[Rfam]
The record is a 62-nucleotide RNA sequence from Pseudonocardia sediminis, which matches "Fluoride riboswitch aptamer (crcB RNA motif)" in Rfam.

RNA sequence: UCUGCUGAUGGCGAUGGAGCUCGCCGACAACCGCUGCUGAUGCUGAUGGCUCCUACCGAUGA
Numbered sequence: 001u002c003u004g005c006u007g008a009u010g011g012c013g014a015u016g017g018a019g020c021u022c023g024c025c026g027a028c029a030a031c032c033g034c035u036g037c038u039g040a041u042g043c044u045g046a047u048g049g050c051u052c053c054u055a056c057c058g059a060u061g062a
Stems, first nucleotide, its partner, number of pairs: 010025004016053006033043002
NCBI's taxonomy places the organism under Bacteria, Actinomycetota, Pseudonocardiales, Pseudonocardiaceae, Pseudonocardia.